About this RNA
Shown here is a 210-nucleotide RNA sequence from Salibaculum griseiflavum, a member of the family "permuted transfer-messenger RNA". A reference for the family is Williams and Bartel (1996), "Phylogenetic analysis of tmRNA secondary structure", RNA. From the family's description: Bacterial tmRNA, also known as 10Sa RNA or SsrA, is named for its dual tRNA and mRNA-like properties. Taxonomically the source falls in Salibaculum (Bacteria, Alphaproteobacteria, Rhodobacterales, Roseobacteraceae). Rfam classes the family as a non-coding RNA gene.

RNA sequence: GGACAUAAACGCGCUCGUAAUAAGCGGAUCGGACCCGGGGGCGGUACCCGGCGGCUCCACCAAAUAACCCUCGUUGGGGGACCAUGGGGCCGAAACAGGAUCGACGAACGUCUAAAGGGGUUAGCUUUGUCUCGGCGGGGUGCCACCGUAUCGGCCCGAAAAAGUACAAUUGCCAACGACAAUCGUGCUCCGGUUGCAGUUGCCGCCUAA
Numbered sequence: 001g002g003a004c005a006u007a008a009a010c011g012c013g014c015u016c017g018u019a020a021u022a023a024g025c026g027g028a029u030c031g032g033a034c035c036c037g038g039g040g041g042c043g044g045u046a047c048c049c050g051g052c053g054g055c056u057c058c059a060c061c062a063a064a065u066a067a068c069c070c071u072c073g074u075u076g077g078g079g080g081a082c083c084a085u086g087g088g089g090c091c092g093a094a095a096c097a098g099g100a101u102c103g104a105c106g107a108a109c110g111u112c113u114a115a116a117g118g119g120g121u122u123a124g125c126u127u128u129g130u131c132u133c134g135g136c137g138g139g140g141u142g143c144c145a146c147c148g149u150a151u152c153g154g155c156c157c158g159a160a161a162a163a164g165u166a167c168a169a170u171u172g173c174c175a176a177c178g179a180c181a182a183u184c185g186u187g188c189u190c191c192g193g194u195u196g197c198a199g200u201u202g203c204c205g206c207c208u209a210a
Stems, first nucleotide, its partner, number of pairs: 001132005013121004025110002029107003035051005052092007133148003